Purine riboswitch aptamer: a 101-nucleotide RNA from Domibacillus iocasae. The family's consensus secondary structure is taken from published work.
[Rfam]
RNA sequence: UAUCAAUUAAACAUAUUCACUCAUAUAAUCGCGGGGAUUGGCCUGCAAGUUUCUACCGGAACACCGUAAAUGAUCCGACUAUGAGUGAACAAGAGAACGGA
Numbered sequence: 001u002a003u004c005a006a007u008u009a010a011a012c013a014u015a016u017u018c019a020c021u022c023a024u025a026u027a028a029u030c031g032c033g034g035g036g037a038u039u040g041g042c043c044u045g046c047a048a049g050u051u052u053c054u055a056c057c058g059g060a061a062c063a064c065c066g067u068a069a070a071u072g073a074u075c076c077g078a079c080u081a082u083g084a085g086u087g088a089a090c091a092a093g094a095g096a097a098c099g100g101a
Stems, first nucleotide, its partner, number of pairs: 018087008029048001031046005057077004062072002
Description
It scores 84 bits against the family's covariance model.